The family of this 66-nucleotide sequence is "DUF3800-VIII RNA". Pairs were carried over by alignment from the consensus structure, which is taken from published work. About the family: Bacteroidetes, Cyanobacteria, Firmicutes, Planctomycetes (1 example), Proteobacteria, Tenericutes (1 example).
RNA sequence: GAGUCCCUAUCUUCUUCGAAUCCUUGCGUUCCACGUGAGGGGUUGAUGUAGAAAAGACGGGGUCGU
Numbered sequence: 001g002a003g004u005c006c007c008u009a010u011c012u013u014c015u016u017c018g019a020a021u022c023c024u025u026g027c028g029u030u031c032c033a034c035g036u037g038a039g040g041g042g043u044u045g046a047u048g049u050a051g052a053a054a055a056g057a058c059g060g061g062g063u064c065g066u
Stems, first nucleotide, its partner, number of pairs: 001066001003064001005062004010057004015053003021041009